The family of this 111-nucleotide RNA from Candidatus Doolittlea endobia is "Alpha operon ribosome binding site".
[Rfam]
RNA sequence: UGGCCGCAACAUUGUUUAUGUAUCCUGGAACGGACUUUUUAGAACAGUGUUGCCGUUAAAAAAUUUUAGGAGUGCAUAGUGGCUCGUAUGGCAGGCAUUAACAUUCCUGAU
Numbered sequence: 001u002g003g004c005c006g007c008a009a010c011a012u013u014g015u016u017u018a019u020g021u022a023u024c025c026u027g028g029a030a031c032g033g034a035c036u037u038u039u040u041a042g043a044a045c046a047g048u049g050u051u052g053c054c055g056u057u058a059a060a061a062a063a064u065u066u067u068a069g070g071a072g073u074g075c076a077u078a079g080u081g082g083c084u085c086g087u088a089u090g091g092c093a094g095g096c097a098u099u100a101a102c103a104u105u106c107c108u109g110a111u
Base pairs, nucleotide, nucleotide: 004055006053007052008051009050010049011048012047013046024095025094026093031086032085033084039110040109041108
NCBI's taxonomy places the organism under Bacteria, Enterobacterales, Enterobacteriaceae, ant, tsetse, mealybug, aphid, etc. endosymbionts, Candidatus Doolittlea. Rfam's curators write: The bacterial alpha operon ribosome binding site is surrounded by this complex pseudoknotted structure. Rfam classes the family as a cis-regulatory element.